[Rfam]
RNA sequence: AGCUCAAUGAUCGUAUUCAUGUUUUGGACAAUAUACGCUAUUCUGAGGAAACUUGAAGUGCUGAUAAGAUACAGUAUGAGAGCU
Numbered sequence: 001a002g003c004u005c006a007a008u009g010a011u012c013g014u015a016u017u018c019a020u021g022u023u024u025u026g027g028a029c030a031a032u033a034u035a036c037g038c039u040a041u042u043c044u045g046a047g048g049a050a051a052c053u054u055g056a057a058g059u060g061c062u063g064a065u066a067a068g069a070u071a072c073a074g075u076a077u078g079a080g081a082g083c084u
Stems, first nucleotide, its partner, number of pairs: 001084005
The record is an 84-nucleotide RNA from Musa troglodytarum, which matches "Small nucleolar RNA U54" in Rfam.
Rfam classes the family as a C/D-box small nucleolar RNA.
Rfam links the family to the GO terms RNA processing and nucleolus.
U54 is a C/D box small nucleolar RNA, which acts as a methylation guide for 18S ribosomal RNA in plants.
For this family Rfam cites "The high diversity of snoRNAs in plants: identification and comparative study of 120 snoRNA genes from Oryza sativa" (Chen et al., Nucleic Acids Res, 2003).
The family's consensus secondary structure was predicted with PFOLD.
NCBI's taxonomy places the organism under Eukaryota, Streptophytina, Petrosaviidae, Zingiberales, Musa.